[Rfam]
RNA: Small nucleolar RNA SNORA32
RNA sequence: UGGUCAUUACCAAGGAUUUUAGAACACCAUUUCUGAGUACUGUGUACUUGACCAUUAAAAAAAAAAAAAAAUUCCCACUAGGUUUUCUCUUUGCUACCUUGCUAGCAUUCAACCAAUUGGGAACAUUU
Numbered sequence: 001u002g003g004u005c006a007u008u009a010c011c012a013a014g015g016a017u018u019u020u021a022g023a024a025c026a027c028c029a030u031u032u033c034u035g036a037g038u039a040c041u042g043u044g045u046a047c048u049u050g051a052c053c054a055u056u057a058a059a060a061a062a063a064a065a066a067a068a069a070a071a072u073u074c075c076c077a078c079u080a081g082g083u084u085u086u087c088u089c090u091u092u093g094c095u096a097c098c099u100u101g102c103u104a105g106c107a108u109u110c111a112a113c114c115a116a117u118u119g120g121g122a123a124c125a126u127u128u
Base pairs, nucleotide, nucleotide: 003052004051005050006049011044012043029038074121075120076119077118081114082113083112084111092107093106094105